[Rfam]
RNA sequence: CCCGACGAAACACCCAGGGACGGGGGCGGGGGACCCACGUCCCCCUUUGGGACAACCGGAAGUGUUCGCGGGGAAUCCUUCCUUGGGGUGAAGCCAGACACGCUCCCGCCAAGAGCGUUGAGGCCGGGCGACCUCUCAGCCCGAACCCGACAGCUGACCUCGUAGGUGCGAGCGGAGAGGAACU
Numbered sequence: 001c002c003c004g005a006c007g008a009a010a011c012a013c014c015c016a017g018g019g020a021c022g023g024g025g026g027c028g029g030g031g032g033a034c035c036c037a038c039g040u041c042c043c044c045c046u047u048u049g050g051g052a053c054a055a056c057c058g059g060a061a062g063u064g065u066u067c068g069c070g071g072g073g074a075a076u077c078c079u080u081c082c083u084u085g086g087g088g089u090g091a092a093g094c095c096a097g098a099c100a101c102g103c104u105c106c107c108g109c110c111a112a113g114a115g116c117g118u119u120g121a122g123g124c125c126g127g128g129c130g131a132c133c134u135c136u137c138a139g140c141c142c143g144a145a146c147c148c149g150a151c152a153g154c155u156g157a158c159c160u161c162g163u164a165g166g167u168g169c170g171a172g173c174g175g176a177g178a179g180g181a182a183c184u
Stems, first nucleotide, its partner, number of pairs: 001025003026163006036085002086148003094123002126142004